[Rfam]
Record summary:
A member of the RNA family "BsrG" from Paenibacillus polymyxa, 249 nucleotides long. By type it is a small RNA. The match comes from Rfam's covariance-model search (76 bits).
RNA sequence: UAACAACAGAAUGGCUUAGAUGGGCGGUCGGCUAGUCUCCUGCAAAGGAGGUGAUGCCUGUGGAGGUUAAAGAUACGCUGAUGUUGAUGAUUCAAUUUGCAACGUUGGUGAUCUUGAUUGUUUCCUUCAACAAAAAGAAAUAGACCGCCCUCUGGAAAAGGUUAGCGGUCUAUUUUACUAAUCCAACCCUACAGCCACCGCCCUUAUAAGCGGCUGUUGUAAAAGAGUGAGGAUGUUAGAGCAUCCUUA
Numbered sequence: 001u002a003a004c005a006a007c008a009g010a011a012u013g014g015c016u017u018a019g020a021u022g023g024g025c026g027g028u029c030g031g032c033u034a035g036u037c038u039c040c041u042g043c044a045a046a047g048g049a050g051g052u053g054a055u056g057c058c059u060g061u062g063g064a065g066g067u068u069a070a071a072g073a074u075a076c077g078c079u080g081a082u083g084u085u086g087a088u089g090a091u092u093c094a095a096u097u098u099g100c101a102a103c104g105u106u107g108g109u110g111a112u113c114u115u116g117a118u119u120g121u122u123u124c125c126u127u128c129a130a131c132a133a134a135a136a137g138a139a140a141u142a143g144a145c146c147g148c149c150c151u152c153u154g155g156a157a158a159a160g161g162u163u164a165g166c167g168g169u170c171u172a173u174u175u176u177a178c179u180a181a182u183c184c185a186a187c188c189c190u191a192c193a194g195c196c197a198c199c200g201c202c203c204u205u206a207u208a209a210g211c212g213g214c215u216g217u218u219g220u221a222a223a224a225g226a227g228u229g230a231g232g233a234u235g236u237u238a239g240a241g242c243a244u245c246c247u248u249a
Stems, first nucleotide, its partner, number of pairs: 001222001003220003007216003012197005022150003026145001028143001033054001035052001037050005062125006076089002100116003160179003198213004228249009
Dot-bracket structure: (.(((.(((..(((((.....(((.(.(....(.(.(((((....))))).).).......((((((........((..........))..........(((...........)))...)))))).................).)..))).........(((..............))).............)))))((((........))))))).))).).....(((((((((....)))))))))
From the family's description: bsrE, bsrG and bsrH pair through intermolecular interactions with antisense sRNAs. They form type I toxin/antitoxin system that includes an mRNA encoding for a short, toxic peptide (bsrE, bsrG and bsrH) and an antitoxin that is comprised of an antisense RNA. bsrG encodes a 39-amino-acid toxin, and the 180 nucleotide antisense sRNA called SR4 acts as the antitoxin (they overlap by 123 nucleotides). SR4 interaction with the 3'UTR of bsrG RNA promotes bsrG degradation and inhibits its translation. The base pairs follow the family's consensus structure, which was predicted with WAR. Rfam 15.1 lists 614 matches to the family in 343 species.